[Rfam]
RNA: drz-agam-1 ribozyme
RNA sequence: UCUAUACCAAACCCUAUCUCCACCUCAACGUGGUGACUGCUGGGAGCUCUUUCUUAAUGAAAAGCUGCAGACGGAGAAGG
Numbered sequence: 001u002c003u004a005u006a007c008c009a010a011a012c013c014c015u016a017u018c019u020c021c022a023c024c025u026c027a028a029c030g031u032g033g034u035g036a037c038u039g040c041u042g043g044g045a046g047c048u049c050u051u052u053c054u055u056a057a058u059g060a061a062a063a064g065c066u067g068c069a070g071a072c073g074g075a076g077a078a079g080g
Base pairs, nucleotide, nucleotide: 013080014079015078017076019074020073022034023033024032045066046065047064048063050061051060053059